The record is a 170-nucleotide RNA sequence from Oscillospiraceae bacterium Marseille-Q3528, which matches "Clostridiales-1 RNA" in Rfam.
RNA sequence: CGAUACCAGUGUGCAAAGGUCUGAGCCCACGCAUGCUUGCAUGCAGGUGGGUGAAAGAACUUGACACACGCCCCGAUAUGAGCAUAAAAGUGAAGAGAUAAGCUUCACGAUAUGCGGAUGUUGGGGAGAAUUGUGAGAGCGCGAAGCACGGAACAAUUCGUAAGGUAUCG
Numbered sequence: 001c002g003a004u005a006c007c008a009g010u011g012u013g014c015a016a017a018g019g020u021c022u023g024a025g026c027c028c029a030c031g032c033a034u035g036c037u038u039g040c041a042u043g044c045a046g047g048u049g050g051g052u053g054a055a056a057g058a059a060c061u062u063g064a065c066a067c068a069c070g071c072c073c074c075g076a077u078a079u080g081a082g083c084a085u086a087a088a089a090g091u092g093a094a095g096a097g098a099u100a101a102g103c104u105u106c107a108c109g110a111u112a113u114g115c116g117g118a119u120g121u122u123g124g125g126g127a128g129a130a131u132u133g134u135g136a137g138a139g140c141g142c143g144a145a146g147c148a149c150g151g152a153a154c155a156a157u158u159c160g161u162a163a164g165g166u167a168u169c170g
Stems, first nucleotide, its partner, number of pairs: 001170007010068004016062003020058003026051005031044005072125008082115004090108006128159007139149001141147002